[Rfam]
RNA sequence: UGCCCUCUCAAUUCCGUAGUGCAUUGCAGUCGGCAGGAUCCUACUGAGAAAACCUGCAAGCACCGCGGGAGUGAGGUGGCUUC
Numbered sequence: 001u002g003c004c005c006u007c008u009c010a011a012u013u014c015c016g017u018a019g020u021g022c023a024u025u026g027c028a029g030u031c032g033g034c035a036g037g038a039u040c041c042u043a044c045u046g047a048g049a050a051a052a053c054c055u056g057c058a059a060g061c062a063c064c065g066c067g068g069g070a071g072u073g074a075g076g077u078g079g080c081u082u083c
Base pairs, nucleotide, nucleotide: 006076007075008074009073010072013069014068015067016066017065020062021061022060024059025058026057027056028055

This 83-nucleotide RNA sequence from Cephus cinctus belongs to the Rfam family "mir-932 microRNA precursor family". Lineage of the source: Eukaryota > Arthropoda > Mandibulata > Neoptera > Cephus. The base pairs follow the family's consensus structure, which was predicted with RNAalifold. A search with the family's covariance model found it, with a score of 64 bits.